transfer-messenger RNA: a 379-nucleotide sequence from Helicobacter valdiviensis. The source organism's lineage runs through Bacteria, Epsilonproteobacteria, Campylobacterales, Helicobacteraceae and Helicobacter. Rfam links the family to the GO term RNA catabolic process. The literature on the family includes a 1996 paper in RNA by Williams and Bartel, "Phylogenetic analysis of tmRNA secondary structure". The family's consensus secondary structure is taken from published work. Rfam classes the family as a non-coding RNA gene.
[Rfam]
Nucleotides: 379
Base pairs, nucleotide, nucleotide: 001375002374003373004372005371006370007369021348022347023346024345025344026343027342028341029340030339032336033335034334035333038330039329040328041327042326043325044319045318046317047316048315049065050064051063052062053061054078055077057075058074059073060072113137114136115135116134117133118132119131120130121129157193158192159191160190161189162188163187164186165185166184167183168182169181173207174206175205176204177203178202211235212234213233214232215231216230217229218228219227221252223250224249225248226247255292256291257290258289259288260287261286262285263284264283266281267280268279271310272309273308276305277304352368353367354366355365356364
Number, partner (000 for none) and nucleotide at each position: 001375g002374g003373g004372g005371c006370u007369g008000a009000c010000u011000u012000g013000a014000a015000u016000u017000u018000c019000g020000a021348c022347a023346g024345g025344a026343a027342u028341u029340a030339a031000a032336u033335g034334g035333c036000u037000u038330a039329a040328a041327u042326u043325g044319c045318a046317u047316g048315c049065c050064g051063a052062c053061u054078u055077g056000u057075g058074c059073u060072a061053a062052g063051u064050c065049g066000u067000a068000a069000a070000a071000c072060u073059g074058g075057u076000u077055c078054a079000u080000a081000a082000a083000u084000a085000u086000a087000a088000a089000c090000g091000c092000a093000a094000a095000c096000a097000a098000c099000g100000c101000a102000a103000a104000u105000u106000a107000c108000g109000c110000u111000c112000c113137a114136g115135c116134u117133u118132a119131c120130g121129c122000u123000a124000a125000a126000g127000c128000u129121g130120c131119g132118u133117a134116a135115g136114u137113u138000u139000a140000u141000c142000u143000a144000a145000g146000c147000u148000u149000u150000u151000u152000g153000g154000a155000g156000c157193u158192g159191u160190u161189u162188u163187u164186g165185g166184u167183u168182a169181a170000g171000a172000u173207u174206c175205u176204a177203g178202c179000u180000a181169u182168u183167a184166g185165c186164c187163a188162a189161a190160a191159a192158c193157a194000u195000c196000a197000u198000u199000u200000c201000u202178g203177c204176u205175a206174g207173a208000u209000g210000c211235g212234u213233u214232u215231u216230g217229u218228g219227c220000c221252a222000c223250c224249u225248u226247u227219g228218c229217a230216c231215a232214a233213a234212a235211u236000u237000a238000a239000g240000c241000u242000c243000u244000u245000a246000a247226g248225a249224g250223g251000u252221u253000g254000c255292c256291u257290u258289u259288u260287u261286g262285u263284a264283g265000u266281a267280a268279a269000u270000a271310g272309c273308u274000a275000g276305g277304u278000u279268u280267u281266u282000g283264c284263u285262a286261u287260a288259a289258a290257a291256g292255g293000a294000a295000a296000g297000a298000u299000u300000u301000u302000c303000c304277a305276c306000c307000u308273a309272g310271c311000a312000a313000a314000a315048g316047c317046a318045u319044g320000u321000a322000a323000u324000c325043c326042a327041a328040u329039u330038u331000u332000u333035g334034u335033u336032g337000g338000u339030u340029u341028g342027g343026u344025u345024u346023u347022u348021g349000g350000a351000c352368u353367g354366g355365g356364g357000u358000u359000u360000g361000a362000u363000u364356c365355c366354c367353c368352a369007c370006a371005g372004c373003u374002c375001c376000a377000c378000c379000a